Rfam assigns this 148-nucleotide RNA from Azoarcus taiwanensis to the family "radC RNA". Rfam 15.1 lists 500 matches to the family in 142 species.
RNA sequence: CCAUCACCGAGAUGCCUGCCGACGUCCUCGGCGACAUGCCCAGGUAGCCCUGGUCUUCAAGGCUACGGCGCAGUCCUCUGCGCUGACCGCGACCCGUUCGCUUCGCAUCCUGGCUGCGAACAAUCACCGCUGUGGCGGUGGUGGAUGC
Numbered sequence: 001c002c003a004u005c006a007c008c009g010a011g012a013u014g015c016c017u018g019c020c021g022a023c024g025u026c027c028u029c030g031g032c033g034a035c036a037u038g039c040c041c042a043g044g045u046a047g048c049c050c051u052g053g054u055c056u057u058c059a060a061g062g063c064u065a066c067g068g069c070g071c072a073g074u075c076c077u078c079u080g081c082g083c084u085g086a087c088c089g090c091g092a093c094c095c096g097u098u099c100g101c102u103u104c105g106c107a108u109c110c111u112g113g114c115u116g117c118g119a120a121c122a123a124u125c126a127c128c129g130c131u132g133u134g135g136c137g138g139u140g141g142u143g144g145a146u147g148c
Stems, first nucleotide, its partner, number of pairs: 012037003015033001018032005044066006052088004067084007116148003123142008
Annotation:
Rfam classes the family as a cis-regulatory element. A search with the family's covariance model found it, with a score of 127 bits.